[Rfam]
This 143-nucleotide sequence from Nesterenkonia cremea belongs to the Rfam family "FMN riboswitch aptamer (RFN element)". The base pairs follow the family's consensus structure, which is taken from published work.

RNA sequence: UUUCGUGCUCCGGGGUCGGUGAAAGUCCGAACCGGCGGUCAUAGUCCGCGACCCGCAGUCAUCUCAGAACCCCUGGGACGGCUCGGUUGAACCGGUGGAACUCCGGUACCGACAGUCACAGUCUGGAUGGGAGCAGCACGAAA
Numbered sequence: 001u002u003u004c005g006u007g008c009u010c011c012g013g014g015g016u017c018g019g020u021g022a023a024a025g026u027c028c029g030a031a032c033c034g035g036c037g038g039u040c041a042u043a044g045u046c047c048g049c050g051a052c053c054c055g056c057a058g059u060c061a062u063c064u065c066a067g068a069a070c071c072c073c074u075g076g077g078a079c080g081g082c083u084c085g086g087u088u089g090a091a092c093c094g095g096u097g098g099a100a101c102u103c104c105g106g107u108a109c110c111g112a113c114a115g116u117c118a119c120a121g122u123c124u125g126g127a128u129g130g131g132a133g134c135a136g137c138a139c140g141a142a143a
Stems, first nucleotide, its partner, number of pairs: 003141007010133001017029003031122002033111002035049004044109002053086002091107005113125003